[Rfam]
Nucleotides: 143
Base pairs, nucleotide, nucleotide: 003064004063005062006061007060009058010057020049021048023042024041025040026039027038028037074135075134076133079131085128086127093120094119096117097116098115
Number, partner (000 for none) and nucleotide at each position: 001000a002000a003064c004063c005062a006061a007060g008000a009058u010057g011000a012000u013000u014000c015000c016000c017000u018000c019000u020049c021048c022000a023042a024041g025040g026039g027038g028037c029000c030000u031000a032000a033000g034000a035000a036000u037028g038027u039026c040025c041024c042023u043000c044000u045000u046000c047000a048021g049020g050000c051000a052000a053000g054000u055000g056000g057010c058009a059000g060007c061006u062005u063004g064003g065000a066000a067000u068000a069000a070000a071000a072000u073000c074135c075134a076133g077000c078000a079131u080000g081000c082000c083000g084000c085128g086127g087000g088000u089000a090000u091000u092000c093120a094119g095000g096117g097116g098115a099000g100000a101000a102000c103000g104000u105000g106000a107000u108000g109000g110000a111000g112000u113000a114000c115098u116097u117096u118000c119094c120093u121000u122000u123000g124000c125000u126000c127086u128085u129000c130000u131079a132000c133076u134075u135074g136000a137000u138000g139000a140000a141000u142000g143000u

Overview:
Small nucleolar RNA SNORA67: a 143-nucleotide sequence from Phyllostomus discolor. U67 belongs to the H/ACA class of snoRNAs which are thought to guide the sites of modification of uridines to pseudouridines. The source organism's lineage runs through Eukaryota, Bilateria, Boreoeutheria, Laurasiatheria and Phyllostomus. The family's RNA type in Rfam is H/ACA-box small nucleolar RNA.